[Rfam]
This 82-nucleotide RNA sequence from Pseudomonas sp. HPB0071 belongs to the Rfam family "narK RNA". Pairs were carried over by alignment from the consensus structure, which is taken from published work.
RNA sequence: GGCAUAUCACUUGCUUUAUGUCUCUUCAGAAGCAAGUGCCAACGGCGGCAUUUGCUGACCGUAUAUUCGACAAUGGCGUCGU
Numbered sequence: 001g002g003c004a005u006a007u008c009a010c011u012u013g014c015u016u017u018a019u020g021u022c023u024c025u026u027c028a029g030a031a032g033c034a035a036g037u038g039c040c041a042a043c044g045g046c047g048g049c050a051u052u053u054g055c056u057g058a059c060c061g062u063a064u065a066u067u068c069g070a071c072a073a074u075g076g077c078g079u080c081g082u
Stems, first nucleotide, its partner, number of pairs: 034053007